The record is an 86-nucleotide sequence from Medicago truncatula, which matches "Small nucleolar RNA R11/Z151" in Rfam. The match comes from Rfam's covariance-model search (82 bits). The base pairs follow the family's consensus structure, which was predicted with PFOLD. The organism belongs to Medicago, within Eukaryota. The literature on the family includes a 2001 paper in J Mol Biol by Barneche et al., "Identification of 66 box C/D snoRNAs in Arabidopsis thaliana: extensive gene duplications generated multiple isoforms predicting new ribosomal RNA 2'-O-methylation sites". Rfam classes the family as a C/D-box small nucleolar RNA.

[Rfam]
RNA sequence: UGGCUUAUGAUGAUAAUAUACUUUAUCUUAGCGGAUUUCAGUGAGAUUUUAUAUCUAUGAUCUGAAUGUUACACACACUGAAGCCA
Numbered sequence: 001u002g003g004c005u006u007a008u009g010a011u012g013a014u015a016a017u018a019u020a021c022u023u024u025a026u027c028u029u030a031g032c033g034g035a036u037u038u039c040a041g042u043g044a045g046a047u048u049u050u051a052u053a054u055c056u057a058u059g060a061u062c063u064g065a066a067u068g069u070u071a072c073a074c075a076c077a078c079u080g081a082a083g084c085c086a
Base pairs, nucleotide, nucleotide: 001086002085003084004083005082